RNA sequence: UCGUGAGGACGACCUCACCACCGAUCCGGUGCUUCGAUGGGGACGGCCCUG
Dot-bracket structure: (.((((((....)))))).).................(((((....)))))
This 51-nucleotide sequence from Pseudomonas panipatensis belongs to the Rfam family "Guanidine-II riboswitch aptamer (mini-ykkC)". The family's consensus secondary structure is taken from published work. The source organism's lineage runs through Bacteria, Pseudomonadati, Gammaproteobacteria, Pseudomonadaceae and Pseudomonas. Simpler in structure and has fewer highly conserved nucleotide positions than the ykkC-yxkD leader.